[Rfam]
Shown here is a 310-nucleotide RNA from Gopherus evgoodei, a member of the family "Small Cajal body-specific RNA 7". For this family Rfam cites "Cajal body-specific small nuclear RNAs: a novel class of 2'-O-methylation and pseudouridylation guide RNAs" (Darzacq et al., EMBO J, 2002). The organism belongs to Gopherus, within Eukaryota.
RNA sequence: UGGAAAUUAUGAAAGGUAACUGGAUGUUUGUUUGGGGGGGGUGAUUGGAAACAUUCAAAUUUAACACUUUAAUAUUAUGUUUUUAUAAUGUGUUUUUGAGAGAGAGGAAUGUACAAAUGCUACAUGGGGGCACUGAUGAAGUGCUGAUUUCAGAGUGCAUCUGAGGCAUGUUGAAAUUUUGAGAAGGGUGGUGUUUUGUUUUGCACAUUGCCAGUGAUAAGUGCCCAAAAUAAGCUCACCAGCUGAAUAUAGACAAUCUAAAGAUCUCUAACAGGUUCAUUGACAUAAAUGAUCCCAUGAGUUGAUCCAA
Numbered sequence: 001u002g003g004a005a006a007u008u009a010u011g012a013a014a015g016g017u018a019a020c021u022g023g024a025u026g027u028u029u030g031u032u033u034g035g036g037g038g039g040g041g042u043g044a045u046u047g048g049a050a051a052c053a054u055u056c057a058a059a060u061u062u063a064a065c066a067c068u069u070u071a072a073u074a075u076u077a078u079g080u081u082u083u084u085a086u087a088a089u090g091u092g093u094u095u096u097u098g099a100g101a102g103a104g105a106g107g108a109a110u111g112u113a114c115a116a117a118u119g120c121u122a123c124a125u126g127g128g129g130g131c132a133c134u135g136a137u138g139a140a141g142u143g144c145u146g147a148u149u150u151c152a153g154a155g156u157g158c159a160u161c162u163g164a165g166g167c168a169u170g171u172u173g174a175a176a177u178u179u180u181g182a183g184a185a186g187g188g189u190g191g192u193g194u195u196u197u198g199u200u201u202u203g204c205a206c207a208u209u210g211c212c213a214g215u216g217a218u219a220a221g222u223g224c225c226c227a228a229a230a231u232a233a234g235c236u237c238a239c240c241a242g243c244u245g246a247a248u249a250u251a252g253a254c255a256a257u258c259u260a261a262a263g264a265u266c267u268c269u270a271a272c273a274g275g276u277u278c279a280u281u282g283a284c285a286u287a288a289a290u291g292a293u294c295c296c297a298u299g300a301g302u303u304g305a306u307c308c309a310a
Stems, first nucleotide, its partner, number of pairs: 001309004169207003174202003182197004187192001